[Rfam]
RNA: mir-1421 microRNA precursor family
RNA sequence: CUGUGUAGGGCGGUCACAUGGGAUGCAGUGCGUUCCACUACCCUACUGCAACUCAUGUGACCACCUCACACCGU
Numbered sequence: 001c002u003g004u005g006u007a008g009g010g011c012g013g014u015c016a017c018a019u020g021g022g023a024u025g026c027a028g029u030g031c032g033u034u035c036c037a038c039u040a041c042c043c044u045a046c047u048g049c050a051a052c053u054c055a056u057g058u059g060a061c062c063a064c065c066u067c068a069c070a071c072c073g074u
Stems, first nucleotide, its partner, number of pairs: 003071004009065002012062010024050007